This 190-nucleotide sequence from Pseudomonas protegens belongs to the Rfam family "RgsA sRNA". About the family: This small RNA (sRNA) was computationally identified in the genome of the opportunistic pathogen Pseudomonas aeruginosa and its expression verified by northern blot analysis. P16 sRNA appears to be conserved across several Pseudomonas species and Azotobacter vinelandii. The sequence is in the family's curated seed alignment. Gene Ontology terms of the family: response to hydrogen peroxide, sRNA-mediated gene silencing and response to oxidative stress. The organism belongs to Pseudomonas protegens, within Bacteria.
[Rfam]
RNA sequence: CGAAGCGCGCGUAUUCCAAAUUUGUUUAAAAAACGAGCAGGGGCAACUGGACUGAAUGCAAUAGUGAUCAAUACUUCAACUGUCGGCGGGACAUCUCCCCCAAGUGAAACGCCGAUCAAGGUACCGAAGGACCGCGUGCCUUAGUUUUACUCCUAAUGGUCUUAACCCGGAUUCACCCCCCAGAACCCGG
Dot-bracket structure: ..................................((.((..........................................((((.((...(((.........)))...)).)))).((((((((........).)))))))..............)).)).....((((.(((........))).))))